[Rfam]
Small Cajal body specific RNA 4: a 129-nucleotide RNA sequence from Acanthisitta chloris. scaRNAs are a specific class of small nuclear RNAs which localise to the Cajal bodies and guide the modification of RNA polymerase II transcribed spliceosomal RNAs U1, U2, U4, U5 and U12. ACA26 belongs to the H/ACA box class of guide RNAs as it has the predicted hairpin-hinge-hairpin-tail structure, conserved H/ACA-box motifs and is found associated with GAR1. Rfam links the family to the GO terms Cajal body, nucleolus and RNA processing. The family is grouped with related families in Rfam's "SCARNA4 clan". Rfam 15.1 lists 634 matches to the family in 510 species. NCBI's taxonomy places the organism under Eukaryota, Opisthokonta, Tetrapoda, Coelurosauria, Acanthisitta. The family's consensus secondary structure was predicted with RNAfold. A search with the family's covariance model found it, with a score of 73 bits. The family's RNA type in Rfam is small Cajal body RNA.

RNA sequence: ACUGGAGGACUAAUGAGACUGAGUCUGAAGAGUGAGACUUGGCUGACAGUGACCUCCUAAAAGCAAAGGGAUGGAGAGACCAGUCCUGCUUCCAGCAAAGCAAAGGGCUCACUGUGCCAUCAGACACUC
Dot-bracket structure: ..((((((........(.(.((((((........)))))).).)........))))).).........((........(..((((((...(.(......).).))))))...)......))........